c-di-AMP riboswitch aptamer (ydaO/yuaA leader): a 173-nucleotide RNA sequence. From the family's description: This family represents a conserved RNA structure found upstream of the ydaO and yuaA genes in Bacillus subtilis and related genes in other bacteria.
RNA sequence: CCGGAUUCCUCACCACGACCCGUGACGGCAGGAGCGGGGGACCCACAGGCAGAACGCCGCCGAGGGAAUUCCCCAUGCGGCUCGGGGUGAAGUCGUGUCCGUACCCCGGGCGCGGCCGGGCAACUCCAGCCCGAACCCGACAGCUCACCUCGCAGGCGACGGAGAGGAAAUCC
Numbered sequence: 001c002c003g004g005a006u007u008c009c010u011c012a013c014c015a016c017g018a019c020c021c022g023u024g025a026c027g028g029c030a031g032g033a034g035c036g037g038g039g040g041a042c043c044c045a046c047a048g049g050c051a052g053a054a055c056g057c058c059g060c061c062g063a064g065g066g067a068a069u070u071c072c073c074c075a076u077g078c079g080g081c082u083c084g085g086g087g088u089g090a091a092g093u094c095g096u097g098u099c100c101g102u103a104c105c106c107c108g109g110g111c112g113c114g115g116c117c118g119g120g121c122a123a124c125u126c127c128a129g130c131c132c133g134a135a136c137c138c139g140a141c142a143g144c145u146c147a148c149c150u151c152g153c154a155g156g157c158g159a160c161g162g163a164g165a166g167g168a169a170a171u172c173c
Stems, first nucleotide, its partner, number of pairs: 001156002006033003034153006044084001085138003093115007118132004